RNA sequence: AAGUCCUUUAAUAACAGUCCCGUGAGGCUGAGAAGGAAGCGGAUAAGAUUCGAGGCAUUUAUGCAUGUCUUGAUUACUUAAUGUACUUCCAUACUCUCUCGCCAUAACGGUGAGAGAGUUUUUUGUU
Numbered sequence: 001a002a003g004u005c006c007u008u009u010a011a012u013a014a015c016a017g018u019c020c021c022g023u024g025a026g027g028c029u030g031a032g033a034a035g036g037a038a039g040c041g042g043a044u045a046a047g048a049u050u051c052g053a054g055g056c057a058u059u060u061a062u063g064c065a066u067g068u069c070u071u072g073a074u075u076a077c078u079u080a081a082u083g084u085a086c087u088u089c090c091a092u093a094c095u096c097u098c099u100c101g102c103c104a105u106a107a108c109g110g111u112g113a114g115a116g117a118g119u120u121u122u123u124u125g126u127u
Base pairs, nucleotide, nucleotide: 004037005036006035007034008033009032015030016029017028018027019026048075050073051072052071053070054069055068056067057066058065091121093119094118095117096116097115098114099113100112101111102110103109